[Rfam]
RNA: Xanthomonadaceae sRNA asX1
RNA sequence: CACCCGGCGUGGCAGGCGUCAGAGGCGCUGGCCGGAUUGGAACGGGGCUGGCCACGCGUGCGUCGGGGAAGCCGAGGGGUCGGAUGUCGGGGGACAUCCGACCCCUUUUUU
Numbered sequence: 001c002a003c004c005c006g007g008c009g010u011g012g013c014a015g016g017c018g019u020c021a022g023a024g025g026c027g028c029u030g031g032c033c034g035g036a037u038u039g040g041a042a043c044g045g046g047g048c049u050g051g052c053c054a055c056g057c058g059u060g061c062g063u064c065g066g067g068g069a070a071g072c073c074g075a076g077g078g079g080u081c082g083g084a085u086g087u088c089g090g091g092g093g094a095c096a097u098c099c100g101a102c103c104c105c106u107u108u109u110u111u
Stems, first nucleotide, its partner, number of pairs: 003067009012057002016028003030053006037045001075106014